Rfam assigns this 122-nucleotide RNA sequence from Azoarcus olearius to the family "Burkholderia RNA 11". Rfam classes the family as a small RNA. Gene Ontology term of the family: protein binding. It scores 92 bits against the family's covariance model. Rfam's curators write: Co-purified with Hfq, expression confirmed by Northern blot. Predicted target marZ. Overlaps coding sequence. NCBI's taxonomy places the organism under Bacteria, Pseudomonadati, Rhodocyclales, Zoogloeaceae, Azoarcus. The literature on the family includes a 2013 paper in Genomics by Ramos et al., "Experimental identification of small non-coding regulatory RNAs in the opportunistic human pathogen Burkholderia cenocepacia J2315".
[Rfam]
RNA sequence: GCAACCUCGCGUUCACCCGCGGCAACCGCAGCGUGUUCCUGGCAGUGCUCGGCAUCUCCUGGUUCUGGUUCUAUGGCGCGGUGUUCCUGUCACAGUUCCCGGCCUACGCCAAGGACGUGCUC
Number, nucleotide and partner (000 for none) at each position: 001g000002c000003a000004a000005c000006c000007u000008c000009g000010c000011g048012u047013u000014c045015a000016c000017c042018c041019g040020c000021g038022g037023c000024a000025a034026c033027c000028g000029c000030a000031g000032c000033g026034u025035g000036u000037u022038c021039c000040u019041g018042g017043c000044a000045g014046u000047g012048c011049u000050c000051g121052g120053c119054a118055u117056c000057u115058c114059c113060u112061g000062g110063u000064u000065c000066u000067g099068g098069u000070u000071c095072u094073a000074u092075g091076g090077c089078g088079c000080g087081g086082u000083g000084u000085u000086c081087c080088u078089g077090u076091c075092a074093c000094a072095g071096u000097u000098c068099c067100c000101g000102g000103c000104c000105u000106a000107c000108g000109c000110c062111a000112a060113g059114g058115a057116c000117g055118u054119g053120c052121u051122c000